The record is a 75-nucleotide RNA sequence from Spizella passerina, which matches "Small nucleolar RNA SNORD69" in Rfam. NCBI's taxonomy places the organism under Eukaryota, Opisthokonta, Deuterostomia, Archelosauria, Spizella. Rfam 15.1 lists 524 matches to the family in 496 species. The match comes from Rfam's covariance-model search (56 bits). From the family's description: snoRNA HBII-210 belongs to the C/D family of snoRNAs. It is the human orthologue of the mouse MBII-210 and is predicted to guide the 2'O-ribose methylation of large 28S rRNA on residue G4464. By type it is a C/D-box small nucleolar RNA.
RNA sequence: UACACAAAGCACAUGAUGACAAAAGUUGAAACUGACUGUAUGAAGUACAUUCAAUCCAACACUGAGCUUUGUGUC
Numbered sequence: 001u002a003c004a005c006a007a008a009g010c011a012c013a014u015g016a017u018g019a020c021a022a023a024a025g026u027u028g029a030a031a032c033u034g035a036c037u038g039u040a041u042g043a044a045g046u047a048c049a050u051u052c053a054a055u056c057c058a059a060c061a062c063u064g065a066g067c068u069u070u071g072u073g074u075c
Base pairs, nucleotide, nucleotide: 002074003073004072005071006070007069008068009067010066